[Rfam]
RNA: Small nucleolar RNA snoR138
RNA sequence: GUCGCCCCUUGAAUAACCGGUUGUUGUAUGUCAGACAUUUGCAUCCGGUUCAGACAGGGGCGCACAGCAAUCAGAAUCUUUUUGAGGGAAAGGAAUGCAAUUCAUUAACAUUCCUUUCUUAGAUUGAUUCUUAUAUUG
Numbered sequence: 001g002u003c004g005c006c007c008c009u010u011g012a013a014u015a016a017c018c019g020g021u022u023g024u025u026g027u028a029u030g031u032c033a034g035a036c037a038u039u040u041g042c043a044u045c046c047g048g049u050u051c052a053g054a055c056a057g058g059g060g061c062g063c064a065c066a067g068c069a070a071u072c073a074g075a076a077u078c079u080u081u082u083u084g085a086g087g088g089a090a091a092g093g094a095a096u097g098c099a100a101u102u103c104a105u106u107a108a109c110a111u112u113c114c115u116u117u118c119u120u121a122g123a124u125u126g127a128u129u130c131u132u133a134u135a136u137u138g
Base pairs, nucleotide, nucleotide: 003062004061005060006059007058009057015050016049017048018047019046020045022043024041026039073131074130075129076128077127078126080123081122082121085120086119087118089117092114093113094112095111096110097109